[Rfam]
RNA sequence: AAAAAGGGCUUCUGUCGUGAGUGGCACACAUAGGGCAACUUGCUCAUUCUGUGUGCAGAAUCAACAUCAAGAGAUUUUGGAAGCAUAAUUUUUUGAUGCUUGGGCAGCUGGUGAUCAUUGGUUCUGGCACCCUA
Numbered sequence: 001a002a003a004a005a006g007g008g009c010u011u012c013u014g015u016c017g018u019g020a021g022u023g024g025c026a027c028a029c030a031u032a033g034g035g036c037a038a039c040u041u042g043c044u045c046a047u048u049c050u051g052u053g054u055g056c057a058g059a060a061u062c063a064a065c066a067u068c069a070a071g072a073g074a075u076u077u078u079g080g081a082a083g084c085a086u087a088a089u090u091u092u093u094u095g096a097u098g099c100u101u102g103g104g105c106a107g108c109u110g111g112u113g114a115u116c117a118u119u120g121g122u123u124c125u126g127g128c129a130c131c132c133u134a
Stems, first nucleotide, its partner, number of pairs: 008084005013026005027055009038044001056079007102132003107128005113123004
A member of the RNA family "U11 spliceosomal RNA" from Heterocephalus glaber, 134 nucleotides long. The source organism's lineage runs through Eukaryota, Tetrapoda, Mammalia, Boreoeutheria and Heterocephalus. The family's consensus secondary structure is taken from published work. The family is grouped with related families in Rfam's "U1 clan". Rfam 15.1 lists 2,595 matches to the family in 1,202 species.